[Rfam]
A member of the RNA family "pan motif" from Geobacter pickeringii, 86 nucleotides long. Rfam classes the family as a cis-regulatory element.
RNA sequence: GGCCCGCAACACCGGUGGAGCCGUUGAAUCGUUUAACCCUUCGUACGCACAUACUGCCUGGAUUCGCCAAGAACCGGGACGGAAGG
Numbered sequence: 001g002g003c004c005c006g007c008a009a010c011a012c013c014g015g016u017g018g019a020g021c022c023g024u025u026g027a028a029u030c031g032u033u034u035a036a037c038c039c040u041u042c043g044u045a046c047g048c049a050c051a052u053a054c055u056g057c058c059u060g061g062a063u064u065c066g067c068c069a070a071g072a073a074c075c076g077g078g079a080c081g082g083a084a085g086g
Stems, first nucleotide, its partner, number of pairs: 001022003004018004010014001054082003057078005063073003